[Rfam]
Notes: This 141-nucleotide RNA from Flexistipes sinusarabici belongs to the Rfam family "Molybdenum/Tungsten riboswitch aptamer (Moco RNA motif)". Its family is annotated with tungstate binding, molybdenum ion binding and regulation of gene expression in the Gene Ontology. Taxonomically the source falls in Flexistipes sinusarabici (Bacteria, Pseudomonadati, Flexistipitaceae, Flexistipes). The match comes from Rfam's covariance-model search (91 bits).
RNA sequence: AAAAAAAAUCAUCUCCGAGUUUAUAAGUCUAAGUCGGUAAAAUACGAUAUGACUUAUAAACCGGUUGGGUUCAGCCCCCAGGGUUUGGACGGAAACGCCCAUGCCUCCCGAAAUUUGGAAAGGAGAUAACUGGUAGUUUUA
Numbered sequence: 001a002a003a004a005a006a007a008a009u010c011a012u013c014u015c016c017g018a019g020u021u022u023a024u025a026a027g028u029c030u031a032a033g034u035c036g037g038u039a040a041a042a043u044a045c046g047a048u049a050u051g052a053c054u055u056a057u058a059a060a061c062c063g064g065u066u067g068g069g070u071u072c073a074g075c076c077c078c079c080a081g082g083g084u085u086u087g088g089a090c091g092g093a094a095a096c097g098c099c100c101a102u103g104c105c106u107c108c109c110g111a112a113a114u115u116u117g118g119a120a121a122g123g124a125g126a127u128a129a130c131u132g133g134u135a136g137u138u139u140u141a
Stems, first nucleotide, its partner, number of pairs: 004134001011127006019061011033048004063076005081106004086101003090097002107118002